[Rfam]
RNA sequence: AGGUUCAAGUGGAGUAGUGGUCUCUGCGCUUUGUGAUUAAGUGAGAUUCAACUCCUCCAACUUAUUCCU
Numbered sequence: 001a002g003g004u005u006c007a008a009g010u011g012g013a014g015u016a017g018u019g020g021u022c023u024c025u026g027c028g029c030u031u032u033g034u035g036a037u038u039a040a041g042u043g044a045g046a047u048u049c050a051a052c053u054c055c056u057c058c059a060a061c062u063u064a065u066u067c068c069u
Base pairs, nucleotide, nucleotide: 007063008062009061010059011058012057013056014055017053018051023046024045027043028042029041030040031039